[Rfam]
RNA sequence: AGCUUUUUAAAUCCGUGUAGAGAUUUCGUCAGACACCAAUUCAUUAGGACUGAUAAGACUUCCAGGAUAAGUGAGGUU
Numbered sequence: 001a002g003c004u005u006u007u008u009a010a011a012u013c014c015g016u017g018u019a020g021a022g023a024u025u026u027c028g029u030c031a032g033a034c035a036c037c038a039a040u041u042c043a044u045u046a047g048g049a050c051u052g053a054u055a056a057g058a059c060u061u062c063c064a065g066g067a068u069a070a071g072u073g074a075g076g077u078u
Stems, first nucleotide, its partner, number of pairs: 002077005008071001011068003016064002020061003024058003028054003
Rfam assigns this 78-nucleotide RNA sequence from Schistosoma mansoni to the family "mir-3492 microRNA precursor family". Rfam 15.1 lists 21,496 matches to the family in 13 species. The base pairs follow the family's consensus structure, which was predicted with RNAalifold. Taxonomically the source falls in Schistosoma (Eukaryota, Eumetazoa, Protostomia, Strigeidida). The match comes from Rfam's covariance-model search (53 bits).